[Rfam]
RNA sequence: CCCAUGUGGAGCAGCGACCACGUAAACGGGCGGAACCGAAAAGCCAUACGAGUAGGAUACGA
Numbered sequence: 001c002c003c004a005u006g007u008g009g010a011g012c013a014g015c016g017a018c019c020a021c022g023u024a025a026a027c028g029g030g031c032g033g034a035a036c037c038g039a040a041a042a043g044c045c046a047u048a049c050g051a052g053u054a055g056g057a058u059a060c061g062a
Stems, first nucleotide, its partner, number of pairs: 006021004029045003036056002
RNA: DUF805 RNA